[Rfam]
RNA sequence: UAUGGUCCUCGGUAGUGGUUUCCAGAUGUAUGCACCAGAUGUAUAUAGCUGUGAACUUCGAUCGAAGAUUCAUU
Numbered sequence: 001u002a003u004g005g006u007c008c009u010c011g012g013u014a015g016u017g018g019u020u021u022c023c024a025g026a027u028g029u030a031u032g033c034a035c036c037a038g039a040u041g042u043a044u045a046u047a048g049c050u051g052u053g054a055a056c057u058u059c060g061a062u063c064g065a066a067g068a069u070u071c072a073u074u
Stems, first nucleotide, its partner, number of pairs: 002073003005069003009065005017057005023051003027047008
RNA: Actino-pnp RNA